[Rfam]
RNA: Vertebrate telomerase RNA
Organism: Phrynocephalus forsythii
RNA sequence: CGGCGAGAGGCCUCUCCUUCUUCUAUUUUCUAACCCUAAUUUUCCGCGGCCAGCGGUUCCAUCAAUCUCGCUGUUUUAUUCGCUGGCUUUCAGCGCACUCAAACUUUUUGAGGAAAACAAUAAAACGCCAGCUGGAAGCAGGGGUGGCCUUUCCUCCUACCGACGCCGCACCUCAGCCGCCGCUCCCUUCCUCUUCGGAGGCCACCUGGUUUUCCCCUCUGAAGCCGCGGUCAGCGUGGCCGCUGCCGCAAAGGGUUUGUCCCUGUGGCUUCUCUGGGGCGGCGGGCCUGGCCGAAGAAGUCUAGGGAGAGGUCCCUGGCCUGAGGCGGGCGCCAGAACAAACUCGGGCGACAUUUUCCCUCGACCCCCGCGCGCUCCUGAGUUGUGGGGCGCGCGUUUGGCGUCGCCCGGACACCA
Numbered sequence: 001c002g003g004c005g006a007g008a009g010g011c012c013u014c015u016c017c018u019u020c021u022u023c024u025a026u027u028u029u030c031u032a033a034c035c036c037u038a039a040u041u042u043u044c045c046g047c048g049g050c051c052a053g054c055g056g057u058u059c060c061a062u063c064a065a066u067c068u069c070g071c072u073g074u075u076u077u078a079u080u081c082g083c084u085g086g087c088u089u090u091c092a093g094c095g096c097a098c099u100c101a102a103a104c105u106u107u108u109u110g111a112g113g114a115a116a117a118c119a120a121u122a123a124a125a126c127g128c129c130a131g132c133u134g135g136a137a138g139c140a141g142g143g144g145u146g147g148c149c150u151u152u153c154c155u156c157c158u159a160c161c162g163a164c165g166c167c168g169c170a171c172c173u174c175a176g177c178c179g180c181c182g183c184u185c186c187c188u189u190c191c192u193c194u195u196c197g198g199a200g201g202c203c204a205c206c207u208g209g210u211u212u213u214c215c216c217c218u219c220u221g222a223a224g225c226c227g228c229g230g231u232c233a234g235c236g237u238g239g240c241c242g243c244u245g246c247c248g249c250a251a252a253g254g255g256u257u258u259g260u261c262c263c264u265g266u267g268g269c270u271u272c273u274c275u276g277g278g279g280c281g282g283c284g285g286g287c288c289u290g291g292c293c294g295a296a297g298a299a300g301u302c303u304a305g306g307g308a309g310a311g312g313u314c315c316c317u318g319g320c321c322u323g324a325g326g327c328g329g330g331c332g333c334c335a336g337a338a339c340a341a342a343c344u345c346g347g348g349c350g351a352c353a354u355u356u357u358c359c360c361u362c363g364a365c366c367c368c369c370g371c372g373c374g375c376u377c378c379u380g381a382g383u384u385g386u387g388g389g390g391c392g393c394g395c396g397u398u399u400g401g402c403g404u405c406g407c408c409c410g411g412a413c414a415c416c417a
Stems, first nucleotide, its partner, number of pairs: 005153008014144005021136001055105004065099001069095005082132006088125003179313003183309005205291002208288003214279004227249004232245004252264004346409007354401002369396004375390004